[Rfam]
This 97-nucleotide RNA sequence from Halopseudomonas laoshanensis belongs to the Rfam family "Bacterial small signal recognition particle RNA". NCBI's taxonomy places the organism under Bacteria, Pseudomonadota, Pseudomonadales, Pseudomonadaceae, Halopseudomonas. The family's consensus secondary structure is taken from published work. Its Rfam clan is "SRP clan". The family's RNA type in Rfam is non-coding RNA gene. Its family is annotated with SRP-dependent cotranslational protein targeting to membrane, signal sequence recognition and signal recognition particle, plasma membrane targeting in the Gene Ontology.
RNA sequence: UGUCGGUCCCCUCGCAAUGAUUCGCCGUUAACCUGGUCAGGCCCGGAAGGGAGCAGCCACAGCGGUUAUAUCGUGUGCCGGGGUGUGGCUGGCGGGG
Numbered sequence: 001u002g003u004c005g006g007u008c009c010c011c012u013c014g015c016a017a018u019g020a021u022u023c024g025c026c027g028u029u030a031a032c033c034u035g036g037u038c039a040g041g042c043c044c045g046g047a048a049g050g051g052a053g054c055a056g057c058c059a060c061a062g063c064g065g066u067u068a069u070a071u072c073g074u075g076u077g078c079c080g081g082g083g084u085g086u087g088g089c090u091g092g093c094g095g096g097g
Base pairs, nucleotide, nucleotide: 004091005090006089007088008087010083011082012081013080014079015075017074018073019072020071021070024066025065026064027063028062029061034059035058036057037056042051043050044049